[Rfam]
RNA sequence: AAUGAUUUCUUAAAAAUCACCGGGCCUUACUAAAGACCCCAAGUACAAUUUUUGCAACCCUGUCCUUCGGGUCAGGGAA
Numbered sequence: 001a002a003u004g005a006u007u008u009c010u011u012a013a014a015a016a017u018c019a020c021c022g023g024g025c026c027u028u029a030c031u032a033a034a035g036a037c038c039c040c041a042a043g044u045a046c047a048a049u050u051u052u053u054g055c056a057a058c059c060c061u062g063u064c065c066u067u068c069g070g071g072u073c074a075g076g077g078a079a
Base pairs, nucleotide, nucleotide: 022039023038024037026035027034028033058077059076060075061074062073064071065070